[Rfam]
Shown here is a 101-nucleotide RNA sequence from Caldimonas caldifontis, a member of the family "Glycine riboswitch aptamer".
Lineage of the source: Bacteria > Pseudomonadati > Pseudomonadota > Betaproteobacteria > Caldimonas.

RNA sequence: ACGGUGAUGUCGGGAGAGCCCGCCGGGUGUGCAAGCACCGAGGCGGCGCCGAAGGAGCAACCGCCCCGGAAACUCUCAGGCCAAAGGACCGGCAUCGCCCC
Dot-bracket structure: .....((((((((......((((...................)))).(((((..(((...((.....))...))))).))).......)))))))).....